[Rfam]
RNA sequence: GUACGAUAAAGGCAAACCCAUUGAAAAAUGGCGACGCAAAGCUAUAGGGGCUAAGGUCAUUGGAAAUUCUCCAAUAAUCAUGCUUGCCAGCUUCCGAA
Numbered sequence: 001g002u003a004c005g006a007u008a009a010a011g012g013c014a015a016a017c018c019c020a021u022u023g024a025a026a027a028a029u030g031g032c033g034a035c036g037c038a039a040a041g042c043u044a045u046a047g048g049g050g051c052u053a054a055g056g057u058c059a060u061u062g063g064a065a066a067u068u069c070u071c072c073a074a075u076a077a078u079c080a081u082g083c084u085u086g087c088c089a090g091c092u093u094c095c096g097a098a
Stems, first nucleotide, its partner, number of pairs: 012037002018031005040092004047088002049084003056078002059075006

This 98-nucleotide sequence from Neobacillus rhizophilus belongs to the Rfam family "c-di-GMP-I riboswitch aptamer". Its family is annotated with cyclic-di-GMP binding in the Gene Ontology. Clan: c-di-GMP_I riboswitch clan. Lineage of the source: Bacteria > Bacillota > Bacilli > Bacillaceae > Neobacillus.